[Rfam]
RNA: Archaeal large subunit ribosomal RNA, nucleotides 1400 to 1803
RNA sequence: AGUAGUAGCAGCAAAGUGGAGUGAGAAUCUCUACCGCCGCAGGGGCGCGGGUUCCUCAUCAAUGUUCGUCAGCUGAGGGUUAGCCGGUCCUAAGCCUUCCCUUAAGAUGAAGAUUGCGAAAGGGAAACGGGUUAAUAUUCUCGUGCCAUCUGGGUACCUGCCGUAAGGCUGCGCUUGAAUCCCGACGCUUCGGGAUACGUCGAGUAGGGCUAUCGCCCUAUUUAACCGGUAAAAUCCGGGGAGAGCCGUAACGGCGAGAACCGGAUGAAGCCGGAAAUAGCUUGCCGAAAUGGUGAGUUCGGCGGAUUCCUGGAGCCCGUGAAAAGGGAAUCAAGACUUGGAAUCCCAGAUGUCCGUACCUAGAUCCAACACAGGUGCCCCUAGGUGAGUAGCCUCAGGCGUGU
Number, nucleotide and partner (000 for none) at each position: 001a000002g000003u000004a000005g000006u000007a000008g000009c000010a000011g000012c000013a000014a000015a000016g034017u033018g032019g031020a030021g029022u000023g000024a000025g000026a000027a000028u000029c021030u020031c019032u018033a017034c016035c401036g400037c399038c398039g000040c000041a000042g000043g380044g379045g378046c377047g000048c000049g360050g359051g000052u000053u000054c078055c077056u076057c075058a074059u000060c000061a000062a000063u071064g070065u000066u000067c000068g000069u000070c064071a063072g000073c000074u058075g057076a056077g055078g054079g000080u000081u000082a000083g000084c000085c356086g355087g354088u000089c123090c122091u000092a000093a000094g117095c116096c000097u000098u113099c112100c000101c109102u000103u000104a000105a000106g000107a000108u000109g101110a000111a000112g099113a098114u000115u000116g095117c094118g000119a000120a000121a000122g090123g089124g000125a000126a000127a144128c143129g142130g141131g140132u000133u000134a000135a000136u000137a000138u000139u000140c131141u130142c129143g128144u127145g000146c000147c352148a351149u350150c349151u348152g347153g346154g345155u000156a000157c000158c000159u000160g000161c000162c000163g000164u000165a000166a000167g000168g000169c000170u000171g000172c000173g000174c000175u000176u000177g000178a000179a000180u000181c328182c327183c326184g000185a000186c000187g316188c315189u314190u313191c312192g311193g310194g309195a308196u000197a000198c304199g303200u302201c301202g300203a222204g221205u220206a219207g218208g217209g000210c000211u000212a000213u000214c000215g000216c000217c208218c207219u206220a205221u204222u203223u000224a000225a000226c274227c273228g272229g271230u000231a000232a000233a000234a000235u265236c264237c263238g262239g261240g000241g000242a000243g000244a000245g255246c254247c253248g000249u000250a000251a000252c000253g247254g246255c245256g000257a000258g000259a000260a000261c239262c238263g237264g236265a235266u000267g000268a000269a000270g000271c229272c228273g227274g226275a000276a000277a000278u000279a000280g000281c000282u000283u000284g000285c000286c292287g000288a000289a000290a000291u000292g286293g000294u000295g000296a000297g000298u000299u000300c202301g201302g200303c199304g198305g000306a000307u000308u195309c194310c193311u192312g191313g190314a189315g188316c187317c000318c000319g000320u000321g000322a000323a000324a000325a000326g183327g182328g181329a000330a000331u000332c000333a000334a000335g000336a000337c000338u000339u000340g000341g000342a000343a000344u000345c154346c153347c152348a151349g150350a149351u148352g147353u000354c087355c086356g085357u000358a000359c050360c049361u000362a000363g000364a000365u000366c375367c374368a000369a000370c000371a000372c000373a000374g367375g366376u000377g046378c045379c044380c043381c000382u000383a395384g394385g393386u000387g000388a000389g000390u000391a000392g000393c385394c384395u383396c000397a000398g038399g037400c036401g035402u000403g000404u000